[Rfam]
RNA sequence: ACUUUUUACAUAGGCCAUUUUCGUAUAACCCCGCUGUUCGGUGCGGGGGUUUCUACAGGGAACCGUAAACCUUAGCUACGAAAAGGCGCUUUCUUAUU
Numbered sequence: 001a002c003u004u005u006u007u008a009c010a011u012a013g014g015c016c017a018u019u020u021u022c023g024u025a026u027a028a029c030c031c032c033g034c035u036g037u038u039c040g041g042u043g044c045g046g047g048g049g050u051u052u053c054u055a056c057a058g059g060g061a062a063c064c065g066u067a068a069a070c071c072u073u074a075g076c077u078a079c080g081a082a083a084a085g086g087c088g089c090u091u092u093c094u095u096a097u098u
Stems, first nucleotide, its partner, number of pairs: 018084008029048006058073003
Dot-bracket structure: .................((((((((...((((((........)))))).........(((..........)))...))))))))..............
Purine riboswitch aptamer: a 98-nucleotide sequence from Siminovitchia fortis. Pairs were carried over by alignment from the consensus structure, which is taken from published work. Gene Ontology term of the family: purine nucleobase biosynthetic process. Riboswitches are metabolite binding domains within certain messenger RNAs that serve as precision sensors for their corresponding targets. Allosteric rearrangement of mRNA structure is mediated by ligand binding, and this results in modulation of gene expression. A class of riboswitches that selectively recognises guanine and becomes saturated at concentrations as low as 5 nM. In Bacillus subtilis, this mRNA motif is located on at least five separate transcriptional units that together encode 17 genes that are mostly involved in purine transport and purine nucleotide biosynthesis. It has also been shown that some members of this family are specific for adenine instead. Lineage of the source: Bacteria > Bacillati > Bacillota > Bacilli > Siminovitchia. The match comes from Rfam's covariance-model search (52 bits).